[Rfam]
RNA: SAM (S-adenosyl methionine) riboswitch aptamer
RNA sequence: GGUCAUGAGUGCCAGCGUCAAGCCCCGGCUCGCUGGCCGGCAACCCUCCCUCCGCGGUGGGGUGCCCCGGGUGACGACCAGGCCGUGCGCACCCGCGUGCGGCAAGCGCGGGGG
Number, nucleotide and partner (000 for none) at each position: 001g079002g078003u077004c076005a000006u000007g000008a000009g038010u000011g037012c036013c035014a034015g033016c032017g000018u000019c000020a000021a030022g029023c000024c000025c000026c000027g000028g000029c022030u021031c000032g016033c015034u014035g013036g012037c011038c009039g066040g065041c064042a000043a000044c062045c061046c060047u000048c057049c056050c000051u000052c000053c000054g000055c000056g049057g048058u000059g000060g046061g045062g044063u000064g041065c040066c039067c000068c000069g000070g000071g000072u000073g000074a000075c000076g004077a003078c002079c001080a000081g000082g103083c102084c101085g100086u099087g098088c097089g096090c095091a000092c000093c000094c000095g090096c089097g088098u087099g086100c085101g084102g083103c082104a000105a000106g000107c000108g000109c000110g000111g000112g000113g000114g000